[Rfam]
RNA: ZMP/ZTP riboswitch aptamer (pfl RNA motif)
RNA sequence: GAGAGGUCAUAUGACUGACGGAAGUGGAGUACCACAUGAAGUAUGACUUAUAAUUAGCCGACCGUCUGGGCAACCUAA
Numbered sequence: 001g002a003g004a005g006g007u008c009a010u011a012u013g014a015c016u017g018a019c020g021g022a023a024g025u026g027g028a029g030u031a032c033c034a035c036a037u038g039a040a041g042u043a044u045g046a047c048u049u050a051u052a053a054u055u056a057g058c059c060g061a062c063c064g065u066c067u068g069g070g071c072a073a074c075c076u077a078a
Stems, first nucleotide, its partner, number of pairs: 004049009015038001017066005024035004055073001057071003